This 67-nucleotide RNA sequence from Pan troglodytes belongs to the Rfam family "mir-486 microRNA precursor family". Pairs were carried over by alignment from the consensus structure, which was predicted with RNAalifold. Its family is annotated with miRNA-mediated post-transcriptional gene silencing and RISC complex in the Gene Ontology. Lineage of the source: Eukaryota > Eumetazoa > Boreoeutheria > Homininae > Pan.

RNA sequence: GCAUCCUGUACUGAGCUGCCCCGAGGCCCUUCAUGCUGCCCAGCUCGGGGCAGCUCAGUACAGGAUA
Dot-bracket structure: .......(((((((((((.((((((..................)))))).)))))))))))......